[Rfam]
Shown here is an 83-nucleotide sequence from Toxostoma redivivum, a member of the family "Small nucleolar SNORD12/SNORD106". A search with the family's covariance model found it, with a score of 56 bits. It is annotated as a C/D-box small nucleolar RNA. Its Rfam clan is "SNORD12 clan". The family has 8 seed sequences and 2,264 matches in Rfam 15.1.
RNA sequence: GCUGGCAGCAGUGAUGACUCUUUCCCCGUCAGAGCGACAGUGUUGACUAUCGCUGUCCAAGCCAGGUUGUGUCUGAUGCCAGC
Numbered sequence: 001g002c003u004g005g006c007a008g009c010a011g012u013g014a015u016g017a018c019u020c021u022u023u024c025c026c027c028g029u030c031a032g033a034g035c036g037a038c039a040g041u042g043u044u045g046a047c048u049a050u051c052g053c054u055g056u057c058c059a060a061g062c063c064a065g066g067u068u069g070u071g072u073c074u075g076a077u078g079c080c081a082g083c
Stems, first nucleotide, its partner, number of pairs: 001083007